The family of this 134-nucleotide RNA sequence from Campylobacter ureolyticus is "Streptococcus sRNA SpR18". On this family, see Mann et al., PLoS Pathog 2012: "Control of virulence by small RNAs in Streptococcus pneumoniae". Taxonomically the source falls in Campylobacter ureolyticus (Bacteria, Pseudomonadati, Campylobacteraceae, Campylobacter). The family's RNA type in Rfam is small RNA.
RNA sequence: UUGAUUGCAAGCUAUAAAGAAAAUGUAAAAUAGCUACUGGUACUCAAAUGGUACUAGAAGCUAAAAAAUAAACUAAAUAAUAGUUCCAAGUGGCUUACAUUUGGACAAAAAAUUAGACAGUGGUAUUAAGGUGU
Numbered sequence: 001u002u003g004a005u006u007g008c009a010a011g012c013u014a015u016a017a018a019g020a021a022a023a024u025g026u027a028a029a030a031u032a033g034c035u036a037c038u039g040g041u042a043c044u045c046a047a048a049u050g051g052u053a054c055u056a057g058a059a060g061c062u063a064a065a066a067a068a069u070a071a072a073c074u075a076a077a078u079a080a081u082a083g084u085u086c087c088a089a090g091u092g093g094c095u096u097a098c099a100u101u102u103g104g105a106c107a108a109a110a111a112a113u114u115a116g117a118c119a120g121u122g123g124u125a126u127u128a129a130g131g132u133g134u
Stems, first nucleotide, its partner, number of pairs: 006039002010035005042127001048121002051118001056069001083106002086104007